[Rfam]
RNA sequence: AGCUUUGUGCAGUGGCAGUAUCGUAGCCCAUGAGGUUUAUCCGAGGCGCGAUUAUUGCUAAUUAAAAUUACAUUUACCCUUCAUUAUUUUUAUCCUAUGACACAUAGAAGAGCAAUAGGAAUGACUGACUGAAAAUUAGU
Numbered sequence: 001a002g003c004u005u006u007g008u009g010c011a012g013u014g015g016c017a018g019u020a021u022c023g024u025a026g027c028c029c030a031u032g033a034g035g036u037u038u039a040u041c042c043g044a045g046g047c048g049c050g051a052u053u054a055u056u057g058c059u060a061a062u063u064a065a066a067a068u069u070a071c072a073u074u075u076a077c078c079c080u081u082c083a084u085u086a087u088u089u090u091u092a093u094c095c096u097a098u099g100a101c102a103c104a105u106a107g108a109a110g111a112g113c114a115a116u117a118g119g120a121a122u123g124a125c126u127g128a129c130u131g132a133a134a135a136u137u138a139g140u
Base pairs, nucleotide, nucleotide: 020052021051022050023049024048026047027046028045034042035041081119082118084115085114087112088111089110090109091108093106135140
The family of this 140-nucleotide RNA sequence from Fukomys damarensis is "U4 spliceosomal RNA". It is annotated as a spliceosomal small nuclear RNA. U4 small nuclear RNA (U4 snRNA) is a component of the major U2-dependent spliceosome.